[Rfam]
RNA sequence: GAACAAGGUUGGGGGUGCUUGCCUGUGCGAGCUGAGAUCAUACCCCAAACACCUGAUCCGGGUAAUACCGGCGUAGGGAAACCAACUGAUAUGUCA
Numbered sequence: 001g002a003a004c005a006a007g008g009u010u011g012g013g014g015g016u017g018c019u020u021g022c023c024u025g026u027g028c029g030a031g032c033u034g035a036g037a038u039c040a041u042a043c044c045c046c047a048a049a050c051a052c053c054u055g056a057u058c059c060g061g062g063u064a065a066u067a068c069c070g071g072c073g074u075a076g077g078g079a080a081a082c083c084a085a086c087u088g089a090u091a092u093g094u095c096a
Base pairs, nucleotide, nucleotide: 007083008082009081010080011046012045013044014043016040017032018031019030020029021028052077053076054075055074058071059070060069061068
The family of this 96-nucleotide RNA from a Rhodothermaceae bacterium is "TPP riboswitch aptamer (THI element)".
The base pairs follow the family's consensus structure, which is taken from published work.